[Rfam]
TPP riboswitch aptamer (THI element): a 97-nucleotide RNA from Fulvimonas soli. Lineage of the source: Bacteria > Pseudomonadota > Gammaproteobacteria > Lysobacterales > Fulvimonas. Vitamin B(1) in its active form thiamin pyrophosphate (TPP) is an essential coenzyme that is synthesised by coupling of pyrimidine and thiazole moieties in bacteria. The family's consensus secondary structure is taken from published work.
RNA sequence: CCGAUGAAGCGGGGGUGCCGGCGCAACGGCCGGCUGAGAGAGUCCCUUCGAACCUGAUCCGGUUAGCACCGGUGUAGGGAGCUUCGCCGCGCGGUCC
Numbered sequence: 001c002c003g004a005u006g007a008a009g010c011g012g013g014g015g016u017g018c019c020g021g022c023g024c025a026a027c028g029g030c031c032g033g034c035u036g037a038g039a040g041a042g043u044c045c046c047u048u049c050g051a052a053c054c055u056g057a058u059c060c061g062g063u064u065a066g067c068a069c070c071g072g073u074g075u076a077g078g079g080a081g082c083u084u085c086g087c088c089g090c091g092c093g094g095u096c097c
Stems, first nucleotide, its partner, number of pairs: 006085005011047004016041001017034005053078004059072004